[Rfam]
RNA sequence: UGUAAACUUUAGGGGUGCUAAUUAAUUUUGGCUGAGAAAAACCCUUAGAACCUGAUCUGGUUAAUACCAGCGAAGGGAAAAGUUAGAACUUGCAU
Numbered sequence: 001u002g003u004a005a006a007c008u009u010u011a012g013g014g015g016u017g018c019u020a021a022u023u024a025a026u027u028u029u030g031g032c033u034g035a036g037a038a039a040a041a042c043c044c045u046u047a048g049a050a051c052c053u054g055a056u057c058u059g060g061u062u063a064a065u066a067c068c069a070g071c072g073a074a075g076g077g078a079a080a081a082g083u084u085a086g087a088a089c090u091u092g093c094a095u
Base pairs, nucleotide, nucleotide: 006083007082008081009080010079011045012044013043014042016039017032018031019030020029021028051076052075053074057070058069059068060067
TPP riboswitch aptamer (THI element): a 95-nucleotide RNA sequence from Mesonia phycicola.
A search with the family's covariance model found it, with a score of 83 bits.
For this family Rfam cites "Comparative genomics of thiamin biosynthesis in procaryotes. New genes and regulatory mechanisms" (Rodionov et al., J Biol Chem, 2002).
Pairs were carried over by alignment from the consensus structure, which is taken from published work.
The source organism's lineage runs through Bacteria, Pseudomonadati, Bacteroidota, Flavobacteriaceae and Mesonia.